[Rfam]
RNA sequence: CAGGCAUGCUGAGCUUCGCAGCGGCGCCUCGGGAUCAUGACCCGACACCGUAUCCAUUCCGAAGCUUGA
Numbered sequence: 001c002a003g004g005c006a007u008g009c010u011g012a013g014c015u016u017c018g019c020a021g022c023g024g025c026g027c028c029u030c031g032g033g034a035u036c037a038u039g040a041c042c043c044g045a046c047a048c049c050g051u052a053u054c055c056a057u058u059c060c061g062a063a064g065c066u067u068g069a
Base pairs, nucleotide, nucleotide: 011067012066013065014064015063016062017061018060022050023049024048030044031043032042033041
RNA: ybhL leader
Organism: Ciceribacter lividus